Shown here is a 138-nucleotide RNA from Myotis myotis, a member of the family "Small nucleolar RNA SNORA8". ACA8 is a member of the H/ACA class of snoRNA that guide the sites of modification of uridines to pseudouridines.
[Rfam]
RNA sequence: UACACUGCAUGGUAAAAGCAUUCAGCAGUUUAUUCCUGCUGGGUGUUCAAAGGACAGUGCGUUAUAAAUUCAGUAUCUGGCAUCGUUGGUUUUCUCGGCUUUAAGCAUGUUAAACCUGGUAAUUUGGCACACACACAC
Numbered sequence: 001u002a003c004a005c006u007g008c009a010u011g012g013u014a015a016a017a018g019c020a021u022u023c024a025g026c027a028g029u030u031u032a033u034u035c036c037u038g039c040u041g042g043g044u045g046u047u048c049a050a051a052g053g054a055c056a057g058u059g060c061g062u063u064a065u066a067a068a069u070u071c072a073g074u075a076u077c078u079g080g081c082a083u084c085g086u087u088g089g090u091u092u093u094c095u096c097g098g099c100u101u102u103a104a105g106c107a108u109g110u111u112a113a114a115c116c117u118g119g120u121a122a123u124u125u126g127g128c129a130c131a132c133a134c135a136c137a138c
Base pairs, nucleotide, nucleotide: 003059004058005057006056007055018046019045020044021043022042023041024040025039026038027037028036063127066124067123069121070119071118072117073116080106081105083103
It is annotated as an H/ACA-box small nucleolar RNA. The family's consensus secondary structure was predicted with RNAfold. Rfam 15.1 lists 1,490 matches to the family in 610 species.